This 109-nucleotide sequence from Aureimonas sp. Leaf454 belongs to the Rfam family "rpsB sRNA". Rfam classes the family as a small RNA. Rfam 15.1 lists 245 matches to the family in 245 species.
RNA sequence: CACACACGGAAUUCGGGAUGGUCCUCCGAGCGAUCGGGGAACCCGCCCACCGGUGGCAGCCAGACGGCUGCUUCUUUUCCGUGGAGGCUCAACCGGUAAAAGGACCCUU
Numbered sequence: 001c002a003c004a005c006a007c008g009g010a011a012u013u014c015g016g017g018a019u020g021g022u023c024c025u026c027c028g029a030g031c032g033a034u035c036g037g038g039g040a041a042c043c044c045g046c047c048c049a050c051c052g053g054u055g056g057c058a059g060c061c062a063g064a065c066g067g068c069u070g071c072u073u074c075u076u077u078u079c080c081g082u083g084g085a086g087g088c089u090c091a092a093c094c095g096g097u098a099a100a101a102g103g104a105c106c107c108u109u
Stems, first nucleotide, its partner, number of pairs: 001086001003084001005083007015047002035045003056071005